Shown here is a 134-nucleotide sequence from Equus caballus, a member of the family "Small nucleolar RNA SNORA43". Clan: SNORA17 clan.

RNA sequence: GAUGCUGGACCUGCCAGCACCACAGACGCAGCUGCUCUGCUGCACCUGUGACGUCAGGGCAAAGAGCAAGUGGCUAUUUCUACGCUCAGUGCUCAGAACAGUGAGCACUAAGAAUGGUUUGUAGCCUGACAUUU
Numbered sequence: 001g002a003u004g005c006u007g008g009a010c011c012u013g014c015c016a017g018c019a020c021c022a023c024a025g026a027c028g029c030a031g032c033u034g035c036u037c038u039g040c041u042g043c044a045c046c047u048g049u050g051a052c053g054u055c056a057g058g059g060c061a062a063a064g065a066g067c068a069a070g071u072g073g074c075u076a077u078u079u080c081u082a083c084g085c086u087c088a089g090u091g092c093u094c095a096g097a098a099c100a101g102u103g104a105g106c107a108c109u110a111a112g113a114a115u116g117g118u119u120u121g122u123a124g125c126c127u128g129a130c131a132u133u134u
Stems, first nucleotide, its partner, number of pairs: 003061002005057004022049004072126003080117003085112002090107006

ACA43 is a member of the H/ACA class of snoRNA that guide the sites of modification of uridines to pseudouridines.